[Rfam]
RNA: PyrR binding site
Organism: Paenibacillus dendritiformis
RNA sequence: UUUUCCUUUAAUACAGUCCAGAGAGGCUGAAAAGGGCUACGUGAUAUUUUAAGGCUAAUAAUAUCUAUGUUUUCGCAUGCCCUUUUGCCCUUUGUGCCAGAAGGGCAUUUUUAGU
Numbered sequence: 001u002u003u004u005c006c007u008u009u010a011a012u013a014c015a016g017u018c019c020a021g022a023g024a025g026g027c028u029g030a031a032a033a034g035g036g037c038u039a040c041g042u043g044a045u046a047u048u049u050u051a052a053g054g055c056u057a058a059u060a061a062u063a064u065c066u067a068u069g070u071u072u073u074c075g076c077a078u079g080c081c082c083u084u085u086u087g088c089c090c091u092u093u094g095u096g097c098c099a100g101a102a103g104g105g106c107a108u109u110u111u112u113a114g115u
Base pairs, nucleotide, nucleotide: 004036005035006034007033008032009031014029015028016027017026018025044072050069051068053066054065056063057062075110077108078107079106080105081104082103083102084101085100086099087098